[Rfam]
RNA sequence: AGGCCCGCCAGCUACCACGUGGAGUGUAUACUCUCUAUCUCUACGACGGUCGUUCUACCGGGCCAAGAAGC
Numbered sequence: 001a002g003g004c005c006c007g008c009c010a011g012c013u014a015c016c017a018c019g020u021g022g023a024g025u026g027u028a029u030a031c032u033c034u035c036u037a038u039c040u041c042u043a044c045g046a047c048g049g050u051c052g053u054u055c056u057a058c059c060g061g062g063c064c065a066a067g068a069a070g071c
Base pairs, nucleotide, nucleotide: 002064003063004062005061006060007059014050015049016048018045019044020043021042022041023040024039
A member of the RNA family "Trypanosomatid snoRNA TB9Cs4H2" from Trypanosoma brucei, 71 nucleotides long.
Rfam classes the family as an H/ACA-box small nucleolar RNA.
Rfam 15.1 lists 44 matches to the family in 17 species.